Streptococcus sRNA SpF39: a 112-nucleotide sequence from Chlorocebus sabaeus.
Pairs were carried over by alignment from the consensus structure, which was predicted with mfold.
It scores 83 bits against the family's covariance model.
Taxonomically the source falls in Chlorocebus (Eukaryota, Vertebrata, Sarcopterygii, Cercopithecinae).
The literature on the family includes a 2012 paper in PLoS Pathog by Mann et al., "Control of virulence by small RNAs in Streptococcus pneumoniae".
RNA sequence: UUUCAUCACAAAAUAAGACUCUUUAAAGAAUCUUUAAAGAGUCUUAUUUUGUGAUGAAAAUUUAAUAUGUAAAUCUCAGACGAUAGAAAUUAAAACCUCUAUCGUCUGAGAU
Numbered sequence: 001u002u003u004c005a006u007c008a009c010a011a012a013a014u015a016a017g018a019c020u021c022u023u024u025a026a027a028g029a030a031u032c033u034u035u036a037a038a039g040a041g042u043c044u045u046a047u048u049u050u051g052u053g054a055u056g057a058a059a060a061u062u063u064a065a066u067a068u069g070u071a072a073a074u075c076u077c078a079g080a081c082g083a084u085a086g087a088a089a090u091u092a093a094a095a096c097c098u099c100u101a102u103c104g105u106c107u108g109a110g111a112u
Base pairs, nucleotide, nucleotide: 004056005055007053008052009051010050016049017048018047026045027044028043029042031040032039033038078107079106080105081104082103083102084101085100086099087098